[Rfam]
RNA sequence: GGGUCCAUCUUCCAGGGCAGUGUUGGAUGUCUAAGUGUAAGCUCCUAACACUGUCUGGUAAAGAUGGCCCC
Numbered sequence: 001g002g003g004u005c006c007a008u009c010u011u012c013c014a015g016g017g018c019a020g021u022g023u024u025g026g027a028u029g030u031c032u033a034a035g036u037g038u039a040a041g042c043u044c045c046u047a048a049c050a051c052u053g054u055c056u057g058g059u060a061a062a063g064a065u066g067g068c069c070c071c
Stems, first nucleotide, its partner, number of pairs: 002070002005067005010061002012058002015056012
The record is a 71-nucleotide RNA from Castor canadensis, which matches "mir-8/mir-141/mir-200 microRNA precursor family" in Rfam. The match comes from Rfam's covariance-model search (59 bits). The base pairs follow the family's consensus structure, which was predicted with RNAalifold. For this family Rfam cites "Identification of novel genes coding for small expressed RNAs" (Lagos-Quintana et al., Science, 2001). Its family is annotated with miRNA-mediated post-transcriptional gene silencing and RISC complex in the Gene Ontology.